[Rfam]
RNA: Clostridioides difficile sRNA included into helicase gene
Organism: Romboutsia sp. CE17
RNA sequence: GAUGAUGAAAAGAAAAGUGAGCAAAUUGAAGAAGAGAGAAGACUAAUGUAUGUAGCAAUUACAAGGGCUGAAGAUAAAUUAUGCAUAAGUUCUCCACAAA
Number, nucleotide and partner (000 for none) at each position: 001g000002a000003u000004g097005a000006u096007g095008a093009a000010a091011a000012g000013a000014a000015a000016a000017g000018u000019g000020a000021g053022c052023a051024a000025a000026u000027u000028g000029a000030a044031g043032a000033a000034g000035a000036g000037a000038g000039a000040a000041g000042a000043c031044u030045a000046a000047u000048g000049u000050a000051u023052g022053u021054a000055g090056c089057a000058a000059u000060u085061a000062c083063a082064a000065g000066g080067g079068c000069u077070g000071a000072a000073g000074a000075u000076a000077a069078a000079u067080u066081a000082u063083g062084c000085a060086u000087a000088a000089g056090u055091u010092c000093u008094c000095c007096a006097c004098a000099a000100a000